[Rfam]
RNA sequence: CGCCGAUGCCCUCCUUGGGCGUUUCCUCCCUUGACUUGGGCCGCUUGUGGCAACGCAGGCGGCCCCUUUAUUUUCAGAG
Numbered sequence: 001c002g003c004c005g006a007u008g009c010c011c012u013c014c015u016u017g018g019g020c021g022u023u024u025c026c027u028c029c030c031u032u033g034a035c036u037u038g039g040g041c042c043g044c045u046u047g048u049g050g051c052a053a054c055g056c057a058g059g060c061g062g063c064c065c066c067u068u069u070a071u072u073u074u075c076a077g078a079g
Stems, first nucleotide, its partner, number of pairs: 008020004039064009

The family of this 79-nucleotide RNA from Methylocapsa palsarum is "Makes More Granules Regulator RNA (mmgR)". A search with the family's covariance model found it, with a score of 63 bits. It is annotated as a small RNA. Pairs were carried over by alignment from the consensus structure. SuhB later renamed mmgR (makes more granules regulator) was a putative non-coding RNA found multiple times in the Agrobacterium tumefaciens genome and related alpha-proteobacteria. Other non-coding RNAs uncovered in the same analysis include: speF, ybhL, metA, and serC.Several studies inSinorhizobium meliloti showed that suhB element is indeed a non-coding RNA:firstly it was detected on Northern blot and called Sm8RNA, secondly in an RNAseq study referred to as SmelC689.The mutant phenotype's (strain lacking the small RNA) cytoplasm contains higher content of polyhydroxybutyrate (PBH)storage granules than wild type strain. The sRNA is required to limit the PBH intracellular accumulation when the nitrogen-fixing Sinorhizobium meliloti is under condition of surplus carbon in relation to nitrogen. It has been renamed to mmgR. Further study confirmed that mmgR fine-tunes the regulation of PBH storage.Northern blot confirmed the expression of the sRNA in other rhizobia species. MmgR homologues were found in most alpha-proteobacteria.